[Rfam]
Nucleotides: 172
Base pairs, nucleotide, nucleotide: 004011029172031170036166041159042158043157044156045155046154047152048151049150050149051148063147064146065145066144067143068142074139075138076137080132081131082130083128084112085111086110087109090105091104092103093102
Number, partner (000 for none) and nucleotide at each position: 001000a002000u003000a004011c005000c006000a007000u008000a009000a010000a011004g012000g013000u014000a015000g016000g017000a018000g019000u020000g021000a022000a023000g024000g025000a026000a027000g028000u029172g030000g031170u032000g033000u034000a035000g036166c037000g038000a039000u040000u041159u042158c043157u044156u045155u046154g047152a048151g049150c050149g051148u052000a053000c054000g055000a056000a057000c058000a059000g060000a061000a062000a063147c064146u065145u066144g067143a068142u069000a070000u071000a072000a073000g074139g075138c076137u077000a078000a079000a080132u081131g082130g083128u084112g085111g086110a087109u088000a089000a090105g091104g092103u093102u094000g095000c096000u097000g098000a099000a100000c101000a102093a103092a104091c105090c106000g107000a108000a109087g110086u111085c112084c113000u114000a115000a116000a117000g118000g119000u120000a121000a122000a123000c124000g125000u126000a127000a128083a129000a130082c131081c132080a133000a134000g135000a136000g137076a138075g139074u140000a141000a142068a143067u144066c145065a146064a147063g148051g149050c150049g151048c152047u153000g154046u155045g156044a157043a158042g159041g160000a161000a162000a163000u164000a165000g166036g167000a168000u169000u170031a171000g172029u
Overview:
Rfam assigns this 172-nucleotide RNA from Catenibacterium sp. CAG:290 to the family "Group II catalytic intron D1-D4-3". From the family's description: Group II introns are found in rRNA, tRNA and mRNA of organelles in fungi, plants and protists, and also in mRNA in bacteria. The pairing is the family consensus, mapped onto this sequence.